[Rfam]
RNA sequence: CUUGACCGAGCCGAGCAGCAGCGGCGCGGAGUCCCCCCGCUCCUGCCCGUACGUGGCCAGCAGCGCCUGCGCCUC
Numbered sequence: 001c002u003u004g005a006c007c008g009a010g011c012c013g014a015g016c017a018g019c020a021g022c023g024g025c026g027c028g029g030a031g032u033c034c035c036c037c038c039g040c041u042c043c044u045g046c047c048c049g050u051a052c053g054u055g056g057c058c059a060g061c062a063g064c065g066c067c068u069g070c071g072c073c074u075c
Stems, first nucleotide, its partner, number of pairs: 015025002033069001038065002043060003047056003